[Rfam]
RNA sequence: AUUUUUUUCUUCUUCAAAUUUGCAACAAAGUCCCUGAAGAAAAAAAAAAGAGGGGGCCUGUCGUCCCCCCAACGGGCGACAGGACCCUGUCGCCCACCCCAGGGGCGACAGGGGCCCUUCCCC
Numbered sequence: 001a002u003u004u005u006u007u008u009c010u011u012c013u014u015c016a017a018a019u020u021u022g023c024a025a026c027a028a029a030g031u032c033c034c035u036g037a038a039g040a041a042a043a044a045a046a047a048a049a050g051a052g053g054g055g056g057c058c059u060g061u062c063g064u065c066c067c068c069c070c071a072a073c074g075g076g077c078g079a080c081a082g083g084a085c086c087c088u089g090u091c092g093c094c095c096a097c098c099c100c101a102g103g104g105g106c107g108a109c110a111g112g113g114g115c116c117c118u119u120c121c122c123c
Base pairs, nucleotide, nucleotide: 005044006043007041008040009039010038011037012036019029020028021027053118054117055116056115057114058113059112062107063106064105065104066103074095075094076093077092078091079090
A member of the RNA family "Glm Y RNA activator of glmS mRNA" from Panicum virgatum, 123 nucleotides long.
Clan: Glm clan.
Pairs were carried over by alignment from the consensus structure, which is taken from published work.
By type it is a small RNA.
From the family's description: This family consists of a number of bacterial RNA genes of around 167 bases in length. The tke1 RNA gene is present in Escherichia coli, Shigella flexneri, Yersinia pestis and Salmonella species where it is found between the yfhK and purL genes. The function of this RNA is unknown.
The literature on the family includes a 2001 paper in Curr Biol by Rivas et al., "Computational identification of noncoding RNAs in E. coli by comparative genomics".